The family of this 393-nucleotide sequence from Arthrobacter sp. CAU 1506 is "Bacterial RNase P class A".
Its family is annotated with tRNA processing, dimeric ribonuclease P complex and ribonuclease P activity in the Gene Ontology.
It is annotated as a ribozyme.
It scores 302 bits against the family's covariance model.
RNA sequence: CGGGUUGGCUGGGCGAUCGCGUCGGACGGGUCUGCGAAGAUGCGUCCGCCGAGGAAAGUCCGGGCUCCGCAGGGCAGGGUGGUGGGUAACGCCCACUCGGGGAAACCCGCAGGCUAGUGCCACAGAAAACAGACCGCCAGGGCUGCCUUGUGCAGCACCUGGUAAGGGUGAAACGGCGGUGUAAGAGACCACCAGCGCGCCGGGCGACCGGGGCGGCUAGGUAAACCCCACCCGGAGCAAGGCCAGACAGGGCACGAUUGAGGGCUGCUCGCCCGAGUGUCCGGGUAGGCCGCUUGAGGGCACCGGCAACGGUGCUCCUAGAUGGAUGAUCGCCACCCGGCGGCGGGCAACUGCCGCAGGUGACAGAACCCGGCUCAUAGGCCAACCCGUCCC
Dot-bracket structure: ((((((((((((((((((.((.((((((..............)))))).)).....[[.[[[[[((((...[[[[.((((((((((.....)))))(((((....)))).)((...(((((............((((((((..(..........)..))))))..)).......((.(((.......))).)).((((.((((....)))).))).)..)))..)))))))))))))...((((.....((((((......((((.]]]]))))..)))))).....))))......((((((((....))))))))..........)))))))..................................]]]]]]]..).))))))))))....